This 569-nucleotide part of an RNA from Chrysochloris asiatica belongs to the Rfam family "Eukaryotic large subunit ribosomal RNA". Pairs were carried over by alignment from the consensus structure, which is taken from published work. The source organism's lineage runs through Eukaryota, Metazoa, Teleostomi, Theria and Chrysochloris.

RNA sequence: CCGGAAAGAUGGUAAUGAAACAAUAGAGCUCCUUGUGAAAAUUCAGAAUCUUCAAAGCCAGCAUAAUUUCCCUGGCUUUGAGGGAGAUAGGGCUGAAACAAGCCUCACAGGUGGUGUUUACUGUAUUUUUAAGAACCCAGACAUUCUUUAGGUUAGUCAAUGUAACUAUGUGCCUCAAGGACUCAUGUGCUAUUAUAUCUGAUUUAUGGUCUUGUUAUUCAAACUCAUGAGGUCACACUGACCCUGUUCUUGUUAUCUAGUUUUCCUGUGAGCAAACUAAUCUGCUAUUUUUGUUAGCAUGUAUAAACUAGCAGCCAUUUCCCCUAAGACGUGGCAGACUUAGGAGAAUCUAUUGUCUCCCUGCCGUCUGGCUAUAGCUGUGCCAAUAAAAUUCUCUAAAUUGGACAUUAUAGUGGUCAUCAUCCUUCUUUGGGAUUCGAUCCCAUAACAGUGAACUAUGUCUGGGCAGAGGAACCUCUGGUGGAGGUCCGUAGCGGUCCUGACGUGCAAAUCGGUCGACCCACCUGGGUAUAGGGGCAAAAGACUAAUGGAACCAUUAGUAGCUGGUU
Dot-bracket structure: ((.(....(((((.......(.(((.....(((.(.(.....(((((.............................................................................................................................................................................................................................................................................................................................................................................................................................................))))).............(((.((.((........)))))))...)..).)))))).).((.......))......)))))......).))..